RNA: Vault RNA
RNA sequence: GGACUGGCUUUAGCUCAGCGGUUCCUUCGGCGACUUCAGCUGCGAAUUCCACCCUCUCUGGGCGGAUGGCUGGCUGCAAAUCCACCCCUCCCCUGGGCGGGUGGCUCGAGUCCCGCGGGCGCUCUCCAGUCCUUUU
Numbered sequence: 001g002g003a004c005u006g007g008c009u010u011u012a013g014c015u016c017a018g019c020g021g022u023u024c025c026u027u028c029g030g031c032g033a034c035u036u037c038a039g040c041u042g043c044g045a046a047u048u049c050c051a052c053c054c055u056c057u058c059u060g061g062g063c064g065g066a067u068g069g070c071u072g073g074c075u076g077c078a079a080a081u082c083c084a085c086c087c088c089u090c091c092c093c094u095g096g097g098c099g100g101g102u103g104g105c106u107c108g109a110g111u112c113c114c115g116c117g118g119g120c121g122c123u124c125u126c127c128a129g130u131c132c133u134u135u136u
Stems, first nucleotide, its partner, number of pairs: 002131006013120004018116004026110005